[Rfam]
RNA sequence: UUUCUGUCCUAAGUACUAGCGCCGCAGGAGUGUUCAAACGAUUAAUAUCACUCCUGCAGCCUUGGUGCUUACUAUGGGGA
Numbered sequence: 001u002u003u004c005u006g007u008c009c010u011a012a013g014u015a016c017u018a019g020c021g022c023c024g025c026a027g028g029a030g031u032g033u034u035c036a037a038a039c040g041a042u043u044a045a046u047a048u049c050a051c052u053c054c055u056g057c058a059g060c061c062u063u064g065g066u067g068c069u070u071a072c073u074a075u076g077g078g079g080a
Base pairs, nucleotide, nucleotide: 001080002079003078004077005076006075007074010071011070012069013068014067015066016065017064018063019062024057025056026055027054028053029052030051
RNA: mir-252 microRNA precursor family
Organism: Leptotrombidium deliense